[Rfam]
RNA sequence: CAACUCUGGAGAGACCGGCCGAUGCCGGCGCCGAAGGGGCACGAAACGCAGGCAGGCCACGCGCCAGGCCGCGUUUUUAAACUCUCAGGCAAAAGGACAGAGGGGCGCGA
Numbered sequence: 001c002a003a004c005u006c007u008g009g010a011g012a013g014a015c016c017g018g019c020c021g022a023u024g025c026c027g028g029c030g031c032c033g034a035a036g037g038g039g040c041a042c043g044a045a046a047c048g049c050a051g052g053c054a055g056g057c058c059a060c061g062c063g064c065c066a067g068g069c070c071g072c073g074u075u076u077u078u079a080a081a082c083u084c085u086c087a088g089g090c091a092a093a094a095g096g097a098c099a100g101a102g103g104g105g106c107g108c109g110a
Base pairs, nucleotide, nucleotide: 001105004102005101006100007099008098015028016027017026018025030090031089032088033086034085037084038083039082043077044076045075046074047073048072049071
Rfam assigns this 110-nucleotide sequence from Xanthomonas citri to the family "Glycine riboswitch aptamer".
Rfam's curators write: This family represents the bacterial glycine riboswitch.